[Rfam]
RNA sequence: AGAUAACUGAUUUCUCCUGGUGCUUAGAGCCCGCUGCUGCCUUCUAGCACCAUUUGAAAUCGGUUAUGG
Numbered sequence: 001a002g003a004u005a006a007c008u009g010a011u012u013u014c015u016c017c018u019g020g021u022g023c024u025u026a027g028a029g030c031c032c033g034c035u036g037c038u039g040c041c042u043u044c045u046a047g048c049a050c051c052a053u054u055u056g057a058a059a060u061c062g063g064u065u066a067u068g069g
Stems, first nucleotide, its partner, number of pairs: 003067002005064001007063008018052005025046004

mir-29 microRNA precursor family: a 69-nucleotide RNA sequence from Salarias fasciatus.
On this family, see Ambros, Cell 2001: "microRNAs: tiny regulators with great potential".
From the family's description: This family represents the microRNA (miRNA) precursors mir-29.